[Rfam]
A member of the RNA family "Small nucleolar RNA snoR99" from Prunus yedoensis, 103 nucleotides long. Rfam 15.1 lists 733 matches to the family in 222 species. NCBI's taxonomy places the organism under Eukaryota, Streptophytina, eudicotyledons, rosids, Prunus yedoensis.
RNA sequence: AUGGUUUAGGGAUGAACAUGUCCCUCAAAUUGAUCUUUCUCCCUUCACUUUGGUAAGCUGUUUUCUGUUUGUGUCUGGCUGAUCAUUGUUGGAUGGGAUAGAU
Number, nucleotide and partner (000 for none) at each position: 001a000002u000003g000004g000005u000006u000007u000008a000009g000010g000011g000012a000013u000014g000015a000016a000017c000018a000019u000020g000021u000022c000023c000024c000025u000026c000027a000028a000029a000030u000031u000032g000033a000034u097035c096036u095037u000038u093039c092040u000041c000042c000043c000044u000045u000046c000047a000048c000049u000050u000051u000052g000053g083054u082055a000056a080057g079058c078059u077060g076061u000062u000063u000064u000065c000066u000067g000068u000069u000070u000071g000072u000073g000074u000075c000076u060077g059078g058079c057080u056081g000082a054083u053084c000085a000086u000087u000088g000089u000090u000091g000092g039093a038094u000095g036096g035097g034098a000099u000100a000101g000102a000103u000